Shown here is a 92-nucleotide sequence from Luteimonas salinisoli, a member of the family "Glycine riboswitch aptamer". This family represents the bacterial glycine riboswitch. The pairing is the family consensus, mapped onto this sequence. Gene Ontology term of the family: glycine biosynthetic process. A search with the family's covariance model found it, with a score of 52 bits.
[Rfam]
RNA sequence: CAACUCUGGAGAGACCGGUUCGAUCCGGCGCCGAAGGUGCAUGGGACAGGCUGCGGCCCGCCCCCGAACUCUCAGGCAAAAGGACAGAGGGG
Numbered sequence: 001c002a003a004c005u006c007u008g009g010a011g012a013g014a015c016c017g018g019u020u021c022g023a024u025c026c027g028g029c030g031c032c033g034a035a036g037g038u039g040c041a042u043g044g045g046a047c048a049g050g051c052u053g054c055g056g057c058c059c060g061c062c063c064c065c066g067a068a069c070u071c072u073c074a075g076g077c078a079a080a081a082g083g084a085c086a087g088a089g090g091g092g
Stems, first nucleotide, its partner, number of pairs: 001092001004089005015028004030077003033073002037071001039069001043065002